[Rfam]
RNA sequence: ACAGUCUGAAAAUCACUUGGGGUCUUCUGUGGCCCCUCAUGUGAUAACUGUGCUGACAGCAGAGGGAGCAUUAACCUCACUGCCCGCGGGUAAAGUGUGGGGAGUGAUACCCAUGUUCCUAUAAUC
Dot-bracket structure: .....(.(.(...((.....((((......)))).....))...)..).)..............(.(((((.....(((((...(((.........)))...))))).....))))).).......
Small nucleolar RNA ACA64: a 126-nucleotide RNA from Bucco capensis. The family's consensus secondary structure was predicted with WAR. It scores 59 bits against the family's covariance model. Rfam links the family to the GO terms RNA processing and nucleolus. The literature on the family includes a 2006 paper in RNA by Schattner et al., "A computational screen for mammalian pseudouridylation guide H/ACA RNAs". Lineage of the source: Eukaryota > Craniata > Sarcopterygii > Neognathae > Bucco. By type it is an H/ACA-box small nucleolar RNA.